[Rfam]
RNA sequence: UCGUUAAGUGAUGACGUGACAAACAGAGUAUCAUGUCAUCAAGCCUUUAAUGGACACUUCAUUGACACAUCAUCACCUUAAAUGAUGUGACAAUAAUGUGUGUAUGAUUGGGCGUGAUGAUGUGACACUUUGUCUACUAAGUUAUCACUUAACGGAA
Numbered sequence: 001u002c003g004u005u006a007a008g009u010g011a012u013g014a015c016g017u018g019a020c021a022a023a024c025a026g027a028g029u030a031u032c033a034u035g036u037c038a039u040c041a042a043g044c045c046u047u048u049a050a051u052g053g054a055c056a057c058u059u060c061a062u063u064g065a066c067a068c069a070u071c072a073u074c075a076c077c078u079u080a081a082a083u084g085a086u087g088u089g090a091c092a093a094u095a096a097u098g099u100g101u102g103u104a105u106g107a108u109u110g111g112g113c114g115u116g117a118u119g120a121u122g123u124g125a126c127a128c129u130u131u132g133u134c135u136a137c138u139a140a141g142u143u144a145u146c147a148c149u150u151a152a153c154g155g156a157a
Base pairs, nucleotide, nucleotide: 001155002154003153004152005151006150007149008148009147010146011145012144013143014142015141017139018138021135023133024132025131026130027129028128029127031125032124033123034122035121036120037119038118039117040116041115043113044112045111046110048107050105051104054101055100056099057098069086070085071084072083073082
A member of the RNA family "MIR4371 microRNA precursor family" from Glycine max, 157 nucleotides long. Gene Ontology terms of the family: miRNA-mediated post-transcriptional gene silencing and RISC complex. The organism belongs to Glycine subgen. Soja, within Eukaryota.